[Rfam]
RNA sequence: CCCAGGGCUUACGCCCUAGGCUAUUUCACGUCGCCCCUCCGGGGCU
Numbered sequence: 001c002c003c004a005g006g007g008c009u010u011a012c013g014c015c016c017u018a019g020g021c022u023a024u025u026u027c028a029c030g031u032c033g034c035c036c037c038u039c040c041g042g043g044g045c046u
Base pairs, nucleotide, nucleotide: 001020002019004017005016006015007014008013033045034044035043036042037041
Acido-Lenti-1 RNA: a 46-nucleotide RNA sequence. Pairs were carried over by alignment from the consensus structure, which is taken from published work. Rfam classes the family as a small RNA.